Shown here is a 64-nucleotide sequence from Clostridium ljungdahlii, a member of the family "RAGATH-18 RNA". Pairs were carried over by alignment from the consensus structure, which is taken from published work. By type it is a small RNA. About the family: Actinobacteria, Firmicutes, Fusobacteria, Thermotogae (1 example).
RNA sequence: CCCUUGGAGUGGAAGACCGAACGAAAGUAGCUAAUUAGCAAAAUCGAACACUAUGAAAAGGGAA
Numbered sequence: 001c002c003c004u005u006g007g008a009g010u011g012g013a014a015g016a017c018c019g020a021a022c023g024a025a026a027g028u029a030g031c032u033a034a035u036u037a038g039c040a041a042a043a044u045c046g047a048a049c050a051c052u053a054u055g056a057a058a059a060g061g062g063a064a
Base pairs, nucleotide, nucleotide: 001062002061003060004059005058009051010050011049022046023045024044030039031038032037